[Rfam]
RNA sequence: GAUUUAUGAUAUAAAAACACGUUGCAGUUGGUAGUCUGCAAGCAUCAUGAUGAUGUCAGUAACCUUCCCUCCAGGUCGUCCUUUAUCAAAUUUUCUUUU
Numbered sequence: 001g002a003u004u005u006a007u008g009a010u011a012u013a014a015a016a017a018c019a020c021g022u023u024g025c026a027g028u029u030g031g032u033a034g035u036c037u038g039c040a041a042g043c044a045u046c047a048u049g050a051u052g053a054u055g056u057c058a059g060u061a062a063c064c065u066u067c068c069c070u071c072c073a074g075g076u077c078g079u080c081c082u083u084u085a086u087c088a089a090a091u092u093u094u095c096u097u098u099u
Base pairs, nucleotide, nucleotide: 004090005089007088008087009086010085011084022041023040024039025038026037027036042056043055044054045053046052047051067075068074
Notes: The record is a 99-nucleotide RNA sequence from Streptococcus mutans, which matches "azaaromatic riboswitch aptamer (yjdF RNA)" in Rfam. The sequence is in the family's curated seed alignment. The family's consensus secondary structure is taken from published work. Taxonomically the source falls in Streptococcus mutans (Bacteria, Bacillota, Streptococcaceae, Streptococcus).